[Rfam]
RNA sequence: GUAGAGUGGGAGUAAAGUAAAGACAUAACUUGAUUUGAAGAGAGAACGCCUAUUUAACAGUGUUUAUAUUAAUCUGAAAUUGACAAUUUGGUAUAAAAUAAGAUAGUUCCCUGCCAAAAUCCCUGCCAAAAAUAAGUUGUUAGGGAUAUUUUUU
Numbered sequence: 001g002u003a004g005a006g007u008g009g010g011a012g013u014a015a016a017g018u019a020a021a022g023a024c025a026u027a028a029c030u031u032g033a034u035u036u037g038a039a040g041a042g043a044g045a046a047c048g049c050c051u052a053u054u055u056a057a058c059a060g061u062g063u064u065u066a067u068a069u070u071a072a073u074c075u076g077a078a079a080u081u082g083a084c085a086a087u088u089u090g091g092u093a094u095a096a097a098a099u100a101a102g103a104u105a106g107u108u109c110c111c112u113g114c115c116a117a118a119a120u121c122c123c124u125g126c127c128a129a130a131a132a133u134a135a136g137u138u139g140u141u142a143g144g145g146a147u148a149u150u151u152u153u154u
Stems, first nucleotide, its partner, number of pairs: 008111005054090001056088002060084001063083002066080002069077002092100003118150003121145005127139003
Dot-bracket structure: .......(((((.........................................(.((..(..((.((.((.....)).)).)))..)).).(((...)))......)))))......((((((((.(((.......))).)))))..)))....
The record is a 154-nucleotide sequence from Oceanobacillus profundus, which matches "Listeria sRNA rli38" in Rfam. The organism belongs to Oceanobacillus, within Bacteria. The match comes from Rfam's covariance-model search (64 bits). On this family, see Toledo-Arana et al., Nature 2009: "The Listeria transcriptional landscape from saprophytism to virulence".